[Rfam]
RNA sequence: AAGAGAAUAUAAACUUCAGUUCGUAUAUACAUGGAAAUAUGGUCCAAGUGUCUCUAGAGAUAACCUUAAAUUAUCUAGCUACGAACUUUAAUAUUGUAUGU
Numbered sequence: 001a002a003g004a005g006a007a008u009a010u011a012a013a014c015u016u017c018a019g020u021u022c023g024u025a026u027a028u029a030c031a032u033g034g035a036a037a038u039a040u041g042g043u044c045c046a047a048g049u050g051u052c053u054c055u056a057g058a059g060a061u062a063a064c065c066u067u068a069a070a071u072u073a074u075c076u077a078g079c080u081a082c083g084a085a086c087u088u089u090a091a092u093a094u095u096g097u098a099u100g101u
Stems, first nucleotide, its partner, number of pairs: 018087008029049002032046004058076006